The family of this 103-nucleotide RNA from Pongo abelii is "Mitochondrial DNA control region secondary structure A". NCBI's taxonomy places the organism under Eukaryota, Metazoa, Euteleostomi, Catarrhini, Pongo. Rfam 15.1 lists 795 matches to the family in 62 species.
[Rfam]
RNA sequence: UUCUUUCAUGGGGGACCAGAUUUGGGUGCCACCCAAGUAUUGACUCACUCACAACGGCCUAUGUAUUUCGUACAUUACUGCUAGCCAACAUGAAUAUUAUCUA
Numbered sequence: 001u002u003c004u005u006u007c008a009u010g011g012g013g014g015a016c017c018a019g020a021u022u023u024g025g026g027u028g029c030c031a032c033c034c035a036a037g038u039a040u041u042g043a044c045u046c047a048c049u050c051a052c053a054a055c056g057g058c059c060u061a062u063g064u065a066u067u068u069c070g071u072a073c074a075u076u077a078c079u080g081c082u083a084g085c086c087a088a089c090a091u092g093a094a095u096a097u098u099a100u101c102u103a
Stems, first nucleotide, its partner, number of pairs: 005094006012086002017080003022036006037058002040054003061075005